Rfam assigns this 104-nucleotide RNA sequence from Proteiniclasticum ruminis to the family "THF (Tetrahydrofolate) riboswitch aptamer". From the family's description: Tetrahydrofolate (THF) riboswitch was first reported for Ames et al. as an RNA motif in 5' untranslated (5'-UTR)regions of folate transport and biosynthesis genes in Firmicutes genomes. Lineage of the source: Bacteria > Bacillati > Bacillota > Clostridiaceae > Proteiniclasticum. On this family, see Ames et al., Chem Biol 2010: "A eubacterial riboswitch class that senses the coenzyme tetrahydrofolate".
[Rfam]
RNA sequence: GGCAAAGUAGGUUGAUGUGCGUUAAGUGCCAGAUGGACGGGAAGUUGCCACUGGACGAAAAACUGCUUUACCAGUUUACGGUACAUCAUCCGCAUUCCGUUGCC
Numbered sequence: 001g002g003c004a005a006a007g008u009a010g011g012u013u014g015a016u017g018u019g020c021g022u023u024a025a026g027u028g029c030c031a032g033a034u035g036g037a038c039g040g041g042a043a044g045u046u047g048c049c050a051c052u053g054g055a056c057g058a059a060a061a062a063c064u065g066c067u068u069u070a071c072c073a074g075u076u077u078a079c080g081g082u083a084c085a086u087c088a089u090c091c092g093c094a095u096u097c098c099g100u101u102g103c104c
Stems, first nucleotide, its partner, number of pairs: 001104005010091002013088007020080003026056002029054004034050003040097003044093001060077006